[Rfam]
RNA sequence: GCCGGGAAUAUUGUCCUGUCACAGCAGUACACCUUUUCAGAGUUACUGGUGUGGCGGGACAUUGUCCUCGAC
Numbered sequence: 001g002c003c004g005g006g007a008a009u010a011u012u013g014u015c016c017u018g019u020c021a022c023a024g025c026a027g028u029a030c031a032c033c034u035u036u037u038c039a040g041a042g043u044u045a046c047u048g049g050u051g052u053g054g055c056g057g058g059a060c061a062u063u064g065u066c067c068u069c070g071a072c
Stems, first nucleotide, its partner, number of pairs: 003070004012061007022051002025048005
Overview:
Rfam assigns this 72-nucleotide RNA from Neodiprion lecontei to the family "mir-1000 microRNA precursor family". Rfam 15.1 lists 152 matches to the family in 150 species. The match comes from Rfam's covariance-model search (73 bits). The family's consensus secondary structure was predicted with RNAalifold.